[Rfam]
RNA sequence: UAGAACAAUGUAGAUAAGGGAAGUCGGCAAAAUAGAUCCGUAACUUCGGGAAAAGGAUUGGCUCUAAGGGUCGGGUGCGUCGGCCACCGACGGAAGUGAGCCUGACCUGGCUGGAUCGGGCGGGGCAACCCGUCUGGCCCGGCCGGGACGGGCGAUCGGAAGUCUCUGGCAGCCCUCGGGCGUCCGGCGCACACCUAACGACCGACUUAGAACUGGUACGGACAAGGGGAAUCUGACUGUCUAAUUAAAACAUAGCAUUGCGAUGGCCAGAAAGUGGUGUUGACGCAAUGUGAUUUCUGCCCAGUGCUCUGAAUGUCAAAGUGAAGAAAUUCAACCAAGCGCGGGUAAACGGCGGGAGUAACUAUGACUCUCUUAAGGUAGCCAAAUGCCUCGUCAUCUAAUUAGUGACGCGCAUGAAUGGAUUAACGAGAUUCCCACUGUCCCUAUCUACUAUCUAGCGAAACCACAGCCAAGGGAACGGGCUUGGCGGA
Numbered sequence: 001u002a003g004a005a006c007a008a009u010g011u012a013g014a015u016a017a018g019g020g021a022a023g024u025c026g027g028c029a030a031a032a033u034a035g036a037u038c039c040g041u042a043a044c045u046u047c048g049g050g051a052a053a054a055g056g057a058u059u060g061g062c063u064c065u066a067a068g069g070g071u072c073g074g075g076u077g078c079g080u081c082g083g084c085c086a087c088c089g090a091c092g093g094a095a096g097u098g099a100g101c102c103u104g105a106c107c108u109g110g111c112u113g114g115a116u117c118g119g120g121c122g123g124g125g126c127a128a129c130c131c132g133u134c135u136g137g138c139c140c141g142g143c144c145g146g147g148a149c150g151g152g153c154g155a156u157c158g159g160a161a162g163u164c165u166c167u168g169g170c171a172g173c174c175c176u177c178g179g180g181c182g183u184c185c186g187g188c189g190c191a192c193a194c195c196u197a198a199c200g201a202c203c204g205a206c207u208u209a210g211a212a213c214u215g216g217u218a219c220g221g222a223c224a225a226g227g228g229g230a231a232u233c234u235g236a237c238u239g240u241c242u243a244a245u246u247a248a249a250a251c252a253u254a255g256c257a258u259u260g261c262g263a264u265g266g267c268c269a270g271a272a273a274g275u276g277g278u279g280u281u282g283a284c285g286c287a288a289u290g291u292g293a294u295u296u297c298u299g300c301c302c303a304g305u306g307c308u309c310u311g312a313a314u315g316u317c318a319a320a321g322u323g324a325a326g327a328a329a330u331u332c333a334a335c336c337a338a339g340c341g342c343g344g345g346u347a348a349a350c351g352g353c354g355g356g357a358g359u360a361a362c363u364a365u366g367a368c369u370c371u372c373u374u375a376a377g378g379u380a381g382c383c384a385a386a387u388g389c390c391u392c393g394u395c396a397u398c399u400a401a402u403u404a405g406u407g408a409c410g411c412g413c414a415u416g417a418a419u420g421g422a423u424u425a426a427c428g429a430g431a432u433u434c435c436c437a438c439u440g441u442c443c444c445u446a447u448c449u450a451c452u453a454u455c456u457a458g459c460g461a462a463a464c465c466a467c468a469g470c471c472a473a474g475g476g477a478a479c480g481g482g483c484u485u486g487g488c489g490g491a
Stems, first nucleotide, its partner, number of pairs: 001457004010451007018443003035059005044049001060214002063211006069203005075192009084169003089164003100153005106147009116137009215219001227436007234428002238252003255291008266278004295422003299353003304350002306346004311342001314341003322333004354372006373377001393409005470487005

Rfam assigns this 491-nucleotide part of an RNA from Tremella mesenterica to the family "Eukaryotic large subunit ribosomal RNA". The source organism's lineage runs through Eukaryota, Fungi, Basidiomycota, Tremellaceae and Tremella mesenterica. Its Rfam clan is "LSU clan".